[Rfam]
RNA: Group II catalytic intron D1-D4-3
Organism: Halomonas cerina
RNA sequence: UUCCCCGCGAGGGGGAAUCUGAAGGCAGCCCGAGGCAAAACGCUGGCCUGACGAACAGGAAGCGGAUACGAGGCGGCAUGGCGGGGUGAGAUGGCCACACUCAUCAAAGCCCAAUACUUGCACGGAACGCCAUGACGUAAAUCCGCCAGGCAUAAGUGGGAAGGUCGCGCGU
Numbered sequence: 001u002u003c004c005c006c007g008c009g010a011g012g013g014g015g016a017a018u019c020u021g022a023a024g025g026c027a028g029c030c031c032g033a034g035g036c037a038a039a040a041c042g043c044u045g046g047c048c049u050g051a052c053g054a055a056c057a058g059g060a061a062g063c064g065g066a067u068a069c070g071a072g073g074c075g076g077c078a079u080g081g082c083g084g085g086g087u088g089a090g091a092u093g094g095c096c097a098c099a100c101u102c103a104u105c106a107a108a109g110c111c112c113a114a115u116a117c118u119u120g121c122a123c124g125g126a127a128c129g130c131c132a133u134g135a136c137g138u139a140a141a142u143c144c145g146c147c148a149g150g151c152a153u154a155a156g157u158g159g160g161a162a163g164g165u166c167g168c169g170c171g172u
Stems, first nucleotide, its partner, number of pairs: 001016006028172002031169002035165002041158004046151005062146006073138003077134007084112004090105004